[Rfam]
RNA sequence: GUAAUGAGUAUUGCUACAUGUAGCACUGGCUCGCAUGAAAAUUUGCCGGCCAGUGCUCAUGUGAUAAUUCUUGUUGCU
Numbered sequence: 001g002u003a004a005u006g007a008g009u010a011u012u013g014c015u016a017c018a019u020g021u022a023g024c025a026c027u028g029g030c031u032c033g034c035a036u037g038a039a040a041a042u043u044u045g046c047c048g049g050c051c052a053g054u055g056c057u058c059a060u061g062u063g064a065u066a067a068u069u070c071u072u073g074u075u076g077c078u
Base pairs, nucleotide, nucleotide: 001077002076003075004074005073006072007071008070010068011067012066013065015063016062017061018060019059022057023056024055025054026053027052028051029050030049031048